SAM (S-adenosyl methionine) riboswitch aptamer: a 114-nucleotide sequence from Actinosynnema mirum. Pairs were carried over by alignment from the consensus structure, which is taken from published work. A search with the family's covariance model found it, with a score of 103 bits.
RNA sequence: GGUCAUGAGUUCCAGCGUCAAGCCCGGGCUUGCUGGACGACAACCCUCCUCCGCGGUGGGGUGCCCCCGGUGACGACCAGGUCCGGCGCGCAGGGCGUCGGGCAAGCGCGGGUC
Numbered sequence: 001g002g003u004c005a006u007g008a009g010u011u012c013c014a015g016c017g018u019c020a021a022g023c024c025c026g027g028g029c030u031u032g033c034u035g036g037a038c039g040a041c042a043a044c045c046c047u048c049c050u051c052c053g054c055g056g057u058g059g060g061g062u063g064c065c066c067c068c069g070g071u072g073a074c075g076a077c078c079a080g081g082u083c084c085g086g087c088g089c090g091c092a093g094g095g096c097g098u099c100g101g102g103c104a105a106g107c108g109c110g111g112g113u114c
Stems, first nucleotide, its partner, number of pairs: 001078004009038001011037006021030002039065001041063001044061003048056002081103009